RNA sequence: CAGCCUAAAAUGAUGAUUCUUUAAAUUUCAUAUCUCUUUGACAUUUUUCUCUGGAGAUAGUUUUUGCCUUAUUAAUCUGAUCAGGCUG
Numbered sequence: 001c002a003g004c005c006u007a008a009a010a011u012g013a014u015g016a017u018u019c020u021u022u023a024a025a026u027u028u029c030a031u032a033u034c035u036c037u038u039u040g041a042c043a044u045u046u047u048u049c050u051c052u053g054g055a056g057a058u059a060g061u062u063u064u065u066g067c068c069u070u071a072u073u074a075a076u077c078u079g080a081u082c083a084g085g086c087u088g
Stems, first nucleotide, its partner, number of pairs: 001088005
Rfam assigns this 88-nucleotide sequence from Muntiacus reevesi to the family "Small nucleolar RNA SNORD111".
The organism belongs to Muntiacus, within Eukaryota.
The family has 5 seed sequences and 894 matches in Rfam 15.1.